[Rfam]
RNA sequence: AGGAGGAACAACCCCAGUGGCUAUGGCCAGCUCUGGAGCCCUGGAUUCAACUCCCGCAGUAACUAUAGAGCUCUCAGCCUGCAGGGGCCUGUAGGCUCCCAGGGCGGG
Numbered sequence: 001a002g003g004a005g006g007a008a009c010a011a012c013c014c015c016a017g018u019g020g021c022u023a024u025g026g027c028c029a030g031c032u033c034u035g036g037a038g039c040c041c042u043g044g045a046u047u048c049a050a051c052u053c054c055c056g057c058a059g060u061a062a063c064u065a066u067a068g069a070g071c072u073c074u075c076a077g078c079c080u081g082c083a084g085g086g087g088c089c090u091g092u093a094g095g096c097u098c099c100c101a102g103g104g105c106g107g108g
Stems, first nucleotide, its partner, number of pairs: 002099004009091002012087003019079004025074002029072007037064001041059003
RNA: mir-8834 microRNA precursor family